The family of this 103-nucleotide sequence from Bacillus sp. PK3_68 is "pan motif".
The family's consensus secondary structure is taken from published work.
The family's RNA type in Rfam is cis-regulatory element.
RNA sequence: CGGGCAGUAUCUUAAAGAGAACUGCACUUGUCCGAAGUCAGCCGCUGGAAUAAUAAAAUAAGCGAAAAGUUCUGCCUUGAUCCGUAAGGACAGGGACAGAGGG
Numbered sequence: 001c002g003g004g005c006a007g008u009a010u011c012u013u014a015a016a017g018a019g020a021a022c023u024g025c026a027c028u029u030g031u032c033c034g035a036a037g038u039c040a041g042c043c044g045c046u047g048g049a050a051u052a053a054u055a056a057a058a059u060a061a062g063c064g065a066a067a068a069g070u071u072c073u074g075c076c077u078u079g080a081u082c083c084g085u086a087a088g089g090a091c092a093g094g095g096a097c098a099g100a101g102g103g
Stems, first nucleotide, its partner, number of pairs: 002028002004025005010020002072099003075095005081090003